[Rfam]
RNA: Actinobacteria sRNA Ms_IGR-5
Organism: Nocardia aurantia
RNA sequence: ACACGGGAAAGGAGGUGGUUCCGAGAAUGAGUAAUUCCAGGACACGUGAGGUGGCUGCCGGCUAGGCGUCACCGCUGCGAAGACGGAUUCCGUUCGCGCGAACGCCGAACCAAAUCCAAGGCAGUCACCCGGCCCCCGAGCCCCCGAUUGGUCCGAUCGGGAUCGUGCGAGGUUUCACCUCCACGGUACGGCUCGGGGGCUGUUCCCU
Numbered sequence: 001a002c003a004c005g006g007g008a009a010a011g012g013a014g015g016u017g018g019u020u021c022c023g024a025g026a027a028u029g030a031g032u033a034a035u036u037c038c039a040g041g042a043c044a045c046g047u048g049a050g051g052u053g054g055c056u057g058c059c060g061g062c063u064a065g066g067c068g069u070c071a072c073c074g075c076u077g078c079g080a081a082g083a084c085g086g087a088u089u090c091c092g093u094u095c096g097c098g099c100g101a102a103c104g105c106c107g108a109a110c111c112a113a114a115u116c117c118a119a120g121g122c123a124g125u126c127a128c129c130c131g132g133c134c135c136c137c138g139a140g141c142c143c144c145c146g147a148u149u150g151g152u153c154c155g156a157u158c159g160g161g162a163u164c165g166u167g168c169g170a171g172g173u174u175u176c177a178c179c180u181c182c183a184c185g186g187u188a189c190g191g192c193u194c195g196g197g198g199g200c201u202g203u204u205c206c207c208u
Stems, first nucleotide, its partner, number of pairs: 014059006060111002063108001065106002068103002073098003130202013143161006
Dot-bracket structure: .............((((((..................................))))))((.(.((.((...(((....................)))...)).)).).))..................(((((((((((((((((((.......))))))............................)))))))))))))......